[Rfam]
RNA: c-di-AMP riboswitch aptamer (ydaO/yuaA leader)
RNA sequence: CAGCUUUCGCUGCCAUCUCUGCUGCCUGCCUGUGAACCGGGGACCCAUCCGUUCCCUGGGGUGAAUCGACGCGUGUCUACGACUGAGUAGUAGUACUCAGCAGUAGCCAGCGCCGUAGGGCUUCUUCCGGCCCGAACCCGUCAGCUAACUCGGUAGGCGGUCAAGGGAAGAAGG
Numbered sequence: 001c002a003g004c005u006u007u008c009g010c011u012g013c014c015a016u017c018u019c020u021g022c023u024g025c026c027u028g029c030c031u032g033u034g035a036a037c038c039g040g041g042g043a044c045c046c047a048u049c050c051g052u053u054c055c056c057u058g059g060g061g062u063g064a065a066u067c068g069a070c071g072c073g074u075g076u077c078u079a080c081g082a083c084u085g086a087g088u089a090g091u092a093g094u095a096c097u098c099a100g101c102a103g104u105a106g107c108c109a110g111c112g113c114c115g116u117a118g119g120g121c122u123u124c125u126u127c128c129g130g131c132c133c134g135a136a137c138c139c140g141u142c143a144g145c146u147a148a149c150u151c152g153g154u155a156g157g158c159g160g161u162c163a164a165g166g167g168a169a170g171a172a173g174g
Base pairs, nucleotide, nucleotide: 008159009158010157011156016035017034036154037153038152039151040150041149046058047057059139060138061137067115068114070112071111072110118133119132120131121130